[Rfam]
RNA: Repression of heat shock gene expression (ROSE) element
Organism: Arminella tubonensis
RNA sequence: UCGGCAGCCCAAUGGGGGCCGAAAAGCCGGGGACGUCGUUUCCGACGCGUCUCCAUUUCCAACUCGCUUUACGGAGGAUUUGGCAAUGAAAA
Number, nucleotide and partner (000 for none) at each position: 001u022002c021003g020004g019005c018006a000007g000008c016009c015010c000011a000012a000013u000014g000015g009016g008017g000018g005019c004020c003021g002022a001023a000024a000025a000026g000027c000028c000029g000030g051031g050032g000033a000034c047035g046036u045037c044038g043039u000040u000041u000042c000043c038044g037045a036046c035047g034048c000049g000050u031051c030052u090053c000054c088055a087056u086057u085058u000059c083060c082061a081062a080063c000064u078065c077066g000067c076068u075069u074070u000071a000072c000073g000074g069075a068076g067077g065078a064079u000080u062081u061082g060083g059084c000085a057086a056087u055088g054089a000090a052091a000092a000